[Rfam]
RNA sequence: UUUUACAAGUAGCCGAAACUUCGAAGCCUGAUGUGCGGGGGACGCAUCAAUACGGGCGGCGCCGGAAAACCGGAAGCCGUUAGCCGUUCGGGGUGAAUCGCGGGCUGUAAGCCGCGUAGGGUUGUAUCCUCAACCCGAACCCGACAACUAACCUCGUAGGCGAACAUAAAAGGAGAG
Numbered sequence: 001u002u003u004u005a006c007a008a009g010u011a012g013c014c015g016a017a018a019c020u021u022c023g024a025a026g027c028c029u030g031a032u033g034u035g036c037g038g039g040g041g042a043c044g045c046a047u048c049a050a051u052a053c054g055g056g057c058g059g060c061g062c063c064g065g066a067a068a069a070c071c072g073g074a075a076g077c078c079g080u081u082a083g084c085c086g087u088u089c090g091g092g093g094u095g096a097a098u099c100g101c102g103g104g105c106u107g108u109a110a111g112c113c114g115c116g117u118a119g120g121g122u123u124g125u126a127u128c129c130u131c132a133a134c135c136c137g138a139a140c141c142c143g144a145c146a147a148c149u150a151a152c153c154u155c156g157u158a159g160g161c162g163a164a165c166a167u168a169a170a171a172g173g174a175g176a177g
Stems, first nucleotide, its partner, number of pairs: 012161003018034002035157006045090001091142003099116004119136004
The record is a 177-nucleotide RNA from Paenibacillus flagellatus, which matches "c-di-AMP riboswitch aptamer (ydaO/yuaA leader)" in Rfam. The match comes from Rfam's covariance-model search (81 bits). From the family's description: This family represents a conserved RNA structure found upstream of the ydaO and yuaA genes in Bacillus subtilis and related genes in other bacteria.